[Rfam]
Nucleotides: 060
Stems, first nucleotide, its partner, number of pairs: 003056005009027008030057001036047003
Number, partner (000 for none) and nucleotide at each position: 001000a002000u003056c004055g005054u006053u007052c008000a009027u010026c011025u012024c013023a014022u015021u016020u017000g018000c019000u020016g021015a022014a023013u024012g025011a026010g027009a028000c029000g030057g031000a032000a033000g034000u035000a036047g037046g038045u039000u040000a041000g042000a043000g044000g045038a046037c047036c048000g049000a050000a051000g052007g053006a054005a055004c056003g057030c058000a059000g060000u
A member of the RNA family "Glutamine riboswitch aptamer (glnA leader)", 60 nucleotides long. The sequence is in the family's curated seed alignment. For this family Rfam cites "Bacterial aptamers that selectively bind glutamine" (Ames and Breaker, RNA Biol, 2011).